mir-1233 microRNA precursor family: an 82-nucleotide RNA from Rhinopithecus roxellana. Pairs were carried over by alignment from the consensus structure, which was predicted with RNAalifold. Lineage of the source: Eukaryota > Deuterostomia > Craniata > Theria > Rhinopithecus.
RNA sequence: GUGAGUGGGAGGCCAGGGCACGGCAUGGGGAGCUGCAGGGCCCUAGGAGGGGCCCCAGCGUCUGAGUCCUGUUCUCUUGCAG
Number, nucleotide and partner (000 for none) at each position: 001g000002u000003g000004a000005g080006u079007g078008g077009g076010a075011g074012g073013c000014c071015a070016g069017g068018g067019c066020a000021c000022g000023g000024c000025a000026u000027g000028g063029g062030g061031a000032g059033c058034u057035g056036c000037a000038g055039g054040g053041c052042c051043c000044u000045a000046g000047g000048a000049g000050g000051g042052g041053c040054c039055c038056c035057a034058g033059c032060g000061u030062c029063u028064g000065a000066g019067u018068c017069c016070u015071g014072u000073u012074c011075u010076c009077u008078u007079g006080c005081a000082g000